Shown here is a 265-nucleotide RNA sequence from Gemella morbillorum, a member of the family "Bacterial large signal recognition particle RNA". Taxonomically the source falls in Gemella (Bacteria, Bacillota, Caryophanales, Gemellaceae). Rfam describes the family as follows. The signal recognition particle (SRP) is a universally conserved ribonucleoprotein involved in the co-translational targeting of proteins to membranes. By type it is a non-coding RNA gene.

RNA sequence: AAAUGCUAGGUGGGGAGUUAGCGGUGCCCUGUACUUGCAAUCCGCUUUAGCAAGGCUGAAUACUGAGAUGCGGGUAGACUAGGGAAUGUCGAGUUUAACACGUAAUGUUGAGACUGAGGCAUCUUACGACGCAAUACUUAUGAACCAUGUCAGGUCCGGAAGGAAGCAGCAUUAAGUAAUGUCAUUGUGGGUGUAAGUUUUUGUUGAGGUUGAGUUGUCGAUUAAACUAACGGUUUUCUAAUCUAUUCAAGUCUCAGUUGCAUAU
Numbered sequence: 001a002a003a004u005g006c007u008a009g010g011u012g013g014g015g016a017g018u019u020a021g022c023g024g025u026g027c028c029c030u031g032u033a034c035u036u037g038c039a040a041u042c043c044g045c046u047u048u049a050g051c052a053a054g055g056c057u058g059a060a061u062a063c064u065g066a067g068a069u070g071c072g073g074g075u076a077g078a079c080u081a082g083g084g085a086a087u088g089u090c091g092a093g094u095u096u097a098a099c100a101c102g103u104a105a106u107g108u109u110g111a112g113a114c115u116g117a118g119g120c121a122u123c124u125u126a127c128g129a130c131g132c133a134a135u136a137c138u139u140a141u142g143a144a145c146c147a148u149g150u151c152a153g154g155u156c157c158g159g160a161a162g163g164a165a166g167c168a169g170c171a172u173u174a175a176g177u178a179a180u181g182u183c184a185u186u187g188u189g190g191g192u193g194u195a196a197g198u199u200u201u202u203g204u205u206g207a208g209g210u211u212g213a214g215u216u217g218u219c220g221a222u223u224a225a226a227c228u229a230a231c232g233g234u235u236u237u238c239u240a241a242u243c244u245a246u247u248c249a250a251g252u253c254u255c256a257g258u259u260g261c262a263u264a265u
Stems, first nucleotide, its partner, number of pairs: 001265001003263004009057003012030004017025003034054005063257007072248005078242001080240008092228001094226005102219001104216003112211004118205003121199001123197004127191001130189005136182002138179004147172004155164003